The record is a 305-nucleotide RNA sequence from Handroanthus impetiginosus, which matches "Plant signal recognition particle RNA" in Rfam. NCBI's taxonomy places the organism under Eukaryota, Embryophyta, Magnoliopsida, asterids, Handroanthus.
RNA sequence: GCCGGGCUUAGUGACGCAGGCCUGUAACCUAAGUGGGGGUAUUAGGGUGAUUGGAUGUUGGGCCAAUCCAAUUGGCUGGACUGUGGUGGCUUAAUUCUGGCUCGCCCGUUCCAAGCGGGGAGGUGGGCCUUGGGGCUCGGGCGAAGGCUUGAGUUCCAUGGCCUUUAGAGUGGAGGGAAUCGCGUUAGGCUGGUUUCACAGAGCAACGAAAACCUCCUGCUCUCUGCAGUGGAAGGAUAACGAGUUGGUGUCACCUAGGUCCAACAAAGCUGAUUGAAUUAGCUCUAAUUAAAACAAUCACCUUU
Numbered sequence: 001g002c003c004g005g006g007c008u009u010a011g012u013g014a015c016g017c018a019g020g021c022c023u024g025u026a027a028c029c030u031a032a033g034u035g036g037g038g039g040u041a042u043u044a045g046g047g048u049g050a051u052u053g054g055a056u057g058u059u060g061g062g063c064c065a066a067u068c069c070a071a072u073u074g075g076c077u078g079g080a081c082u083g084u085g086g087u088g089g090c091u092u093a094a095u096u097c098u099g100g101c102u103c104g105c106c107c108g109u110u111c112c113a114a115g116c117g118g119g120g121a122g123g124u125g126g127g128c129c130u131u132g133g134g135g136c137u138c139g140g141g142c143g144a145a146g147g148c149u150u151g152a153g154u155u156c157c158a159u160g161g162c163c164u165u166u167a168g169a170g171u172g173g174a175g176g177g178a179a180u181c182g183c184g185u186u187a188g189g190c191u192g193g194u195u196u197c198a199c200a201g202a203g204c205a206a207c208g209a210a211a212a213c214c215u216c217c218u219g220c221u222c223u224c225u226g227c228a229g230u231g232g233a234a235g236g237a238u239a240a241c242g243a244g245u246u247g248g249u250g251u252c253a254c255c256u257a258g259g260u261c262c263a264a265c266a267a268a269g270c271u272g273a274u275u276g277a278a279u280u281a282g283c284u285c286u287a288a289u290u291a292a293a294a295c296a297a298u299c300a301c302c303u304u305u
Stems, first nucleotide, its partner, number of pairs: 001040003004023006028037003044304010056291002058288003061284003065280002069276009078262005083255001085254001087253003091250001097248008106236002109234005115227008125164005131158012165170001172217005183208003190201003
Source information:
The family has 63 seed sequences and 4,988 matches in Rfam 15.1.